This 140-nucleotide RNA from Nitrobacter hamburgensis belongs to the Rfam family "flg-Rhizobiales RNA".
RNA sequence: CGAACCGCAGGCUUGGGAGAGCCGUGGGGUUCGAAAACGAUCCGGCGGCGGCCUGGGAGGGCCUUCACGCGGGUCCUCAAGGGGAGAACCACCGAUGGAGAAUACGCUCCUCAUCGGACUGUCGCGGCAGAUGAUGCUCG
Numbered sequence: 001c002g003a004a005c006c007g008c009a010g011g012c013u014u015g016g017g018a019g020a021g022c023c024g025u026g027g028g029g030u031u032c033g034a035a036a037a038c039g040a041u042c043c044g045g046c047g048g049c050g051g052c053c054u055g056g057g058a059g060g061g062c063c064u065u066c067a068c069g070c071g072g073g074u075c076c077u078c079a080a081g082g083g084g085a086g087a088a089c090c091a092c093c094g095a096u097g098g099a100g101a102a103u104a105c106g107c108u109c110c111u112c113a114u115c116g117g118a119c120u121g122u123c124g125c126g127g128c129a130g131a132u133g134a135u136g137c138u139c140g
Stems, first nucleotide, its partner, number of pairs: 001033006008026001010023005039075006050063005092117005098112003102108001
NCBI's taxonomy places the organism under Bacteria, Pseudomonadota, Alphaproteobacteria, Nitrobacteraceae, Nitrobacter hamburgensis.